A member of the RNA family "Small nucleolar RNA SNORD102" from Erinaceus europaeus, 71 nucleotides long. The base pairs follow the family's consensus structure, which was predicted with PFOLD. NCBI's taxonomy places the organism under Eukaryota, Teleostomi, Dipnotetrapodomorpha, Amniota, Erinaceus. On this family, see Vitali et al., Nucleic Acids Res 2003: "Identification of 13 novel human modification guide RNAs".
RNA sequence: AGCUUAAUGAUGAGUAUCUUGUUGAUGCUUAAAGCAAUGUGAAAAAAGACAUUUCACCGGCUCUGAAAGCU
Numbered sequence: 001a002g003c004u005u006a007a008u009g010a011u012g013a014g015u016a017u018c019u020u021g022u023u024g025a026u027g028c029u030u031a032a033a034g035c036a037a038u039g040u041g042a043a044a045a046a047a048g049a050c051a052u053u054u055c056a057c058c059g060g061c062u063c064u065g066a067a068a069g070c071u
Stems, first nucleotide, its partner, number of pairs: 001071005
Dot-bracket structure: (((((.............................................................)))))